[Rfam]
The family of this 86-nucleotide sequence from Mesocricetibacter intestinalis is "t44 RNA". Lineage of the source: Bacteria > Pseudomonadati > Pseudomonadota > Gammaproteobacteria > Mesocricetibacter.

RNA sequence: CGUUAAAACAUCAUAUAUCACACACAUACCCAAGGGGUAAAUCGGGGUGCCAAACGGUCGAUUUAUCUGGUAUGUGGAGGCAAAAC
Numbered sequence: 001c002g003u004u005a006a007a008a009c010a011u012c013a014u015a016u017a018u019c020a021c022a023c024a025c026a027u028a029c030c031c032a033a034g035g036g037g038u039a040a041a042u043c044g045g046g047g048u049g050c051c052a053a054a055c056g057g058u059c060g061a062u063u064u065a066u067c068u069g070g071u072a073u074g075u076g077g078a079g080g081c082a083a084a085a086c
Base pairs, nucleotide, nucleotide: 023076024075025074026073027072028071029070030069036067037066038065039064040063041062042061043060044059049058050057051056
Overview
This family consists of a number of bacterial RNA genes of between 135 and 170 bases in length. A search with the family's covariance model found it, with a score of 56 bits. For this family Rfam cites "Transcriptome analysis of Escherichia coli using high-density oligonucleotide probe arrays" (Tjaden et al., Nucleic Acids Res, 2002).